The family of this 70-nucleotide RNA from Rodentolepis nana is "HDV ribozyme from F. prausnitzii".
A search with the family's covariance model found it, with a score of 47 bits.
The base pairs follow the family's consensus structure, which is taken from published work.
The family has 48 seed sequences and 3,803 matches in Rfam 15.1.

RNA sequence: GGUGUGCAAUAGACUUACCUCCACGUGGUGCACACUGGGCAACGUAUGCUCAUACGGCAAAAAGUCUAAU
Numbered sequence: 001g002g003u004g005u006g007c008a009a010u011a012g013a014c015u016u017a018c019c020u021c022c023a024c025g026u027g028g029u030g031c032a033c034a035c036u037g038g039g040c041a042a043c044g045u046a047u048g049c050u051c052a053u054a055c056g057g058c059a060a061a062a063a064g065u066c067u068a069a070u
Base pairs, nucleotide, nucleotide: 001036002035003034004033005032006031007030017029018028019027043056044055045054046053047052